[Rfam]
RNA sequence: GGUUGUGGUGGUUUUCUUUCUGGCACAUUUGUUAAAUUUUCAAAUGGGCCUGACGCCGCCACAUAUAUUAUAUAGGAGCUGGCAAGGGCUUGAUGACAGAGAGAUCUCUCUCUAGCCUUUCCUGCAUCAGGGAUUGGCUCCCACAUGU
Numbered sequence: 001g002g003u004u005g006u007g008g009u010g011g012u013u014u015u016c017u018u019u020c021u022g023g024c025a026c027a028u029u030u031g032u033u034a035a036a037u038u039u040u041c042a043a044a045u046g047g048g049c050c051u052g053a054c055g056c057c058g059c060c061a062c063a064u065a066u067a068u069u070a071u072a073u074a075g076g077a078g079c080u081g082g083c084a085a086g087g088g089c090u091u092g093a094u095g096a097c098a099g100a101g102a103g104a105u106c107u108c109u110c111u112c113u114a115g116c117c118u119u120u121c122c123u124g125c126a127u128c129a130g131g132g133a134u135u136g137g138c139u140c141c142c143a144c145a146u147g148u
Stems, first nucleotide, its partner, number of pairs: 005062007022050003026046006075141006081090003107133005
Notes:
The family of this 148-nucleotide RNA sequence from Felis catus is "Small nucleolar RNA SNORA12". U108 belongs to the H/ACA family of snoRNAs. The sequence is predicted to guide the pseudouridylation of the U372 residue in the 28S rRNA subunit. However it has not been reported as a pseudouridylation site. The sequence is in the family's curated seed alignment. The organism belongs to Felis, within Eukaryota. For this family Rfam cites "A novel experimental approach for systematic identification of box H/ACA snoRNAs from eukaryotes" (Gu et al., Nucleic Acids Res, 2005). Gene Ontology terms of the family: RNA processing and nucleolus.